[Rfam]
Notes:
terC RNA: a 58-nucleotide RNA from Paramagnetospirillum magnetotacticum. The family's RNA type in Rfam is cis-regulatory element. Rfam 15.1 lists 1,112 matches to the family in 772 species. The source organism's lineage runs through Bacteria, Pseudomonadati, Pseudomonadota, Alphaproteobacteria and Paramagnetospirillum magnetotacticum. The family's consensus secondary structure is taken from published work.
RNA sequence: AGAUGGGUCCGGGCCCCUCUGGCGGUCGAGGCGUCGGCCGUGAUGUCGGAUUCUUAUC
Numbered sequence: 001a002g003a004u005g006g007g008u009c010c011g012g013g014c015c016c017c018u019c020u021g022g023c024g025g026u027c028g029a030g031g032c033g034u035c036g037g038c039c040g041u042g043a044u045g046u047c048g049g050a051u052u053c054u055u056a057u058c
Stems, first nucleotide, its partner, number of pairs: 006052007022041008
Dot-bracket structure: .....(((((((.........((((((((....))))))))....)))))))......